[Rfam]
Annotation:
The family of this 204-nucleotide RNA from Dipodomys ordii is "Connexin-43 internal ribosome entry site (IRES)". Its family is annotated with ribosome binding in the Gene Ontology. Rfam describes the family as follows. This family represents the connexin-43 internal ribosome entry site (IRES) which allows cap independent translation during conditions such as heat shock and stress. A search with the family's covariance model found it, with a score of 132 bits. Pairs were carried over by alignment from the consensus structure, which is taken from published work. The literature on the family includes a 1999 paper in FEBS Lett by Schiavi et al., "Connexin43 mRNA contains a functional internal ribosome entry site". NCBI's taxonomy places the organism under Eukaryota, Deuterostomia, Boreoeutheria, Rodentia, Dipodomys.
RNA sequence: UUUUUUUACGAGGUAUCAGCACUUUUCUUUCAUUAGGGGGAAGGCGUGAGGAAAGCACCAAACGGCAGCAGACUUUUAAACUUUAAAUAGACAGGUCCGAGUGUCUGAACUUGCCUUUCCUCUGGUAUCUCAUCCACCCAGGAGUUCCAGGCUUGGCGCGCCCGCUUCACUCCUUUUAAGUGAGAGAGUAAGUGUUUUAAACCC
Numbered sequence: 001u002u003u004u005u006u007u008a009c010g011a012g013g014u015a016u017c018a019g020c021a022c023u024u025u026u027c028u029u030u031c032a033u034u035a036g037g038g039g040g041a042a043g044g045c046g047u048g049a050g051g052a053a054a055g056c057a058c059c060a061a062a063c064g065g066c067a068g069c070a071g072a073c074u075u076u077u078a079a080a081c082u083u084u085a086a087a088u089a090g091a092c093a094g095g096u097c098c099g100a101g102u103g104u105c106u107g108a109a110c111u112u113g114c115c116u117u118u119c120c121u122c123u124g125g126u127a128u129c130u131c132a133u134c135c136a137c138c139c140a141g142g143a144g145u146u147c148c149a150g151g152c153u154u155g156g157c158g159c160g161c162c163c164g165c166u167u168c169a170c171u172c173c174u175u176u177u178a179a180g181u182g183a184g185a186g187a188g189u190a191a192g193u194g195u196u197u198u199a200a201a202c203c204c
Stems, first nucleotide, its partner, number of pairs: 003019002007015003029144003033140001036137001038135002040131002043128001048122004053118003071097005099114001101112001103110001153199001155197002158195004165186003168182004